[Rfam]
RNA sequence: CGGACCAAGUAGAAGCAUACCCGCUUCUCACCUGUAGUGACGCGUUAAGCAGUUAGCAGGUAGAAAUAAACCUUUAUUGUUUAUGGAUUAGAGCGGGUGCCUUGUGCAUUCGCUCUUUUUUUCUUGG
Numbered sequence: 001c002g003g004a005c006c007a008a009g010u011a012g013a014a015g016c017a018u019a020c021c022c023g024c025u026u027c028u029c030a031c032c033u034g035u036a037g038u039g040a041c042g043c044g045u046u047a048a049g050c051a052g053u054u055a056g057c058a059g060g061u062a063g064a065a066a067u068a069a070a071c072c073u074u075u076a077u078u079g080u081u082u083a084u085g086g087a088u089u090a091g092a093g094c095g096g097g098u099g100c101c102u103u104g105u106g107c108a109u110u111c112g113c114u115c116u117u118u119u120u121u122u123c124u125u126g127g
Base pairs, nucleotide, nucleotide: 011028012027013026014025015024016023030061031060032059039054040053041052042050043049092114093113094112095111096110097109098108099107100106

Rfam assigns this 127-nucleotide RNA sequence from Mammaliicoccus stepanovicii to the family "Ribosomal protein L20 leader".
The base pairs follow the family's consensus structure, which was predicted with CMfinder.
This family is a putative r-protein leader autoregulatory structure found in B. subtilis and other low-GC Gram-positive bacteria. It is located in the 5' untranslated regions of mRNAs encoding initiation factor 3 followed by ribosomal proteins L35 and L20 (infC-rpmI-rplT). A Rho-independent transcription terminator structure that is probably involved in regulation is included at the 3' end.
It scores 78 bits against the family's covariance model.
By type it is a cis-regulatory leader.
On this family, see Zengel and Lindahl, Prog Nucleic Acid Res Mol Biol 1994: "Diverse mechanisms for regulating ribosomal protein synthesis in Escherichia coli".
NCBI's taxonomy places the organism under Bacteria, Bacillati, Bacilli, Caryophanales, Mammaliicoccus.